The record is a 91-nucleotide sequence from Vitis rotundifolia, which matches "Small nucleolar RNA snoR27" in Rfam. On this family, see Brown et al., RNA 2001: "Multiple snoRNA gene clusters from Arabidopsis". It scores 66 bits against the family's covariance model. By type it is a C/D-box small nucleolar RNA. The family is grouped with related families in Rfam's "snR68 clan". The base pairs follow the family's consensus structure, which was predicted with WAR.

RNA sequence: UUUGGAUCAGUGAUGUUACUAAUGAACUGCGUUAUCUAUCUGCAACUCCCCAAAAGGGAUUGAAGAUAAAUGUGAUAGCCUAAGAUCUUAC
Numbered sequence: 001u002u003u004g005g006a007u008c009a010g011u012g013a014u015g016u017u018a019c020u021a022a023u024g025a026a027c028u029g030c031g032u033u034a035u036c037u038a039u040c041u042g043c044a045a046c047u048c049c050c051c052a053a054a055a056g057g058g059a060u061u062g063a064a065g066a067u068a069a070a071u072g073u074g075a076u077a078g079c080c081u082a083a084g085a086u087c088u089u090a091c
Stems, first nucleotide, its partner, number of pairs: 002090001004088004